About this RNA: Acido-Lenti-1 RNA: a 46-nucleotide sequence from Kolteria novifilia.
RNA sequence: CCUGGCACUCACGUGCCAGGCUUUACUCGGCUGUCGCUUCGCGGCU
Dot-bracket structure: ((((((((....))))))))............(((((...))))).

The family has 87 seed sequences and 2,607 matches in Rfam 15.1. It is annotated as a small RNA. It scores 44 bits against the family's covariance model. The organism belongs to Kolteria, within Bacteria.